[Rfam]
RNA sequence: GAAGCAGGACGCAAUUACUGUGCUUCGUCUUGUGGAAGUGCUGUCGUUAUCCUGCUGAGAGCAACAUCUACUACAGAGCCCCUUCUGCUCGUCUUGUGGGAUGAGAAAUGCUCUUUAGUAGUAACAGCU
Numbered sequence: 001g002a003a004g005c006a007g008g009a010c011g012c013a014a015u016u017a018c019u020g021u022g023c024u025u026c027g028u029c030u031u032g033u034g035g036a037a038g039u040g041c042u043g044u045c046g047u048u049a050u051c052c053u054g055c056u057g058a059g060a061g062c063a064a065c066a067u068c069u070a071c072u073a074c075a076g077a078g079c080c081c082c083u084u085c086u087g088c089u090c091g092u093c094u095u096g097u098g099g100g101a102u103g104a105g106a107a108a109u110g111c112u113c114u115u116u117a118g119u120a121g122u123a124a125c126a127g128c129u
Stems, first nucleotide, its partner, number of pairs: 003056006018043001020041007069123006076116003083107001088105007
RNA: Small nucleolar RNA SNORA69
Organism: Electrophorus electricus